[Rfam]
RNA sequence: UCCUCACUCCCGGGGUCCAGUUUUCCCAGGAAUCCCUUAGCCAAUCAGAGAGGGGAUUCCUGGAAAUACUGUUCUUGAGGGUGGGGC
Numbered sequence: 001u002c003c004u005c006a007c008u009c010c011c012g013g014g015g016u017c018c019a020g021u022u023u024u025c026c027c028a029g030g031a032a033u034c035c036c037u038u039a040g041c042c043a044a045u046c047a048g049a050g051a052g053g054g055g056a057u058u059c060c061u062g063g064a065a066a067u068a069c070u071g072u073u074c075u076u077g078a079g080g081g082u083g084g085g086g087c
Stems, first nucleotide, its partner, number of pairs: 018071004023066002026063012
Dot-bracket structure: .................((((.((.((((((((((((..............)))))))))))).)).))))................
The family of this 87-nucleotide RNA from Neogobius melanostomus is "mir-145 microRNA precursor family". NCBI's taxonomy places the organism under Eukaryota, Euteleostomi, Euteleosteomorpha, Gobioidei, Neogobius. Gene Ontology terms of the family: RISC complex and miRNA-mediated post-transcriptional gene silencing. A search with the family's covariance model found it, with a score of 84 bits.